[Rfam]
RNA sequence: UUGAUAGUGAUGUCAUGGGUGGAGGAAUUGAUGUAGCGAUUUUUUUGAGUAUAUGAACAGAAAUCUGAUGAGGUUAAAUGGUGGAUAAGGUUGCACAACAAAUCGAAAUCCAAAAGAUAGAUGUAAAACCAAAGCAGUAAAUCAGGCUAUUGUGGAAGAAAUAGUGUUCGU
Numbered sequence: 001u002u003g004a005u006a007g008u009g010a011u012g013u014c015a016u017g018g019g020u021g022g023a024g025g026a027a028u029u030g031a032u033g034u035a036g037c038g039a040u041u042u043u044u045u046u047g048a049g050u051a052u053a054u055g056a057a058c059a060g061a062a063a064u065c066u067g068a069u070g071a072g073g074u075u076a077a078a079u080g081g082u083g084g085a086u087a088a089g090g091u092u093g094c095a096c097a098a099c100a101a102a103u104c105g106a107a108a109u110c111c112a113a114a115a116g117a118u119a120g121a122u123g124u125a126a127a128a129c130c131a132a133a134g135c136a137g138u139a140a141a142u143c144a145g146g147c148u149a150u151u152g153u154g155g156a157a158g159a160a161a162u163a164g165u166g167u168u169c170g171u
Base pairs, nucleotide, nucleotide: 002015003014004013005012006011031171032170036167037166041159042158043157044156045155047153048151049150050149051148064146065145066144067143068142073138074137075136079131080130081129082128083111084110085109086108089104090103091102092101
RNA: Group II catalytic intron D1-D4-3
Organism: Thomasclavelia cocleata